RNA sequence: CACUGCCAGUAGCAGCACAGAAGUAAGGGUGACAUGGUAUGGUAUUGCCACCCUUAGUUCUGUGCUGCUGCUGGCGGGG
Numbered sequence: 001c002a003c004u005g006c007c008a009g010u011a012g013c014a015g016c017a018c019a020g021a022a023g024u025a026a027g028g029g030u031g032a033c034a035u036g037g038u039a040u041g042g043u044a045u046u047g048c049c050a051c052c053c054u055u056a057g058u059u060c061u062g063u064g065c066u067g068c069u070g071c072u073g074g075c076g077g078g079g
Stems, first nucleotide, its partner, number of pairs: 001079001003077001005075003011069008020059001022058001024056006
Record summary:
Rfam assigns this 79-nucleotide RNA from Mauremys mutica to the family "mir-16 microRNA precursor family". The literature on the family includes a 2020 paper in Mol Cell by Partin et al., "Cryo-EM Structures of Human Drosha and DGCR8 in Complex with Primary MicroRNA". It scores 39 bits against the family's covariance model. The family has 14 seed sequences and 4,705 matches in Rfam 15.1.